[Rfam]
RNA sequence: AUGCCAGCUUAGCCUAGUGGUUCCUUGGCUCCCCAGUCAAAUACAGUUCCUUGGCCCUGUUGGUUUGAGUCCCAUGGGGGCUGCCUGGCCUUUAU
Numbered sequence: 001a002u003g004c005c006a007g008c009u010u011a012g013c014c015u016a017g018u019g020g021u022u023c024c025u026u027g028g029c030u031c032c033c034c035a036g037u038c039a040a041a042u043a044c045a046g047u048u049c050c051u052u053g054g055c056c057c058u059g060u061u062g063g064u065u066u067g068a069g070u071c072c073c074a075u076g077g078g079g080g081c082u083g084c085c086u087g088g089c090c091u092u093u094a095u
Stems, first nucleotide, its partner, number of pairs: 003089005013078003017075004025069002028066001
Shown here is a 95-nucleotide sequence from Podarcis muralis, a member of the family "Vault RNA".
Rfam classes the family as a non-coding RNA gene.
Rfam describes the family as follows. This family of RNAs are found as part of the enigmatic vault ribonucleoprotein complex. The complex consists of a major vault protein (MVP), two minor vault proteins (VPARP and TEP1), and several small untranslated RNA molecules. It has been suggested that the vault complex is involved in drug resistance.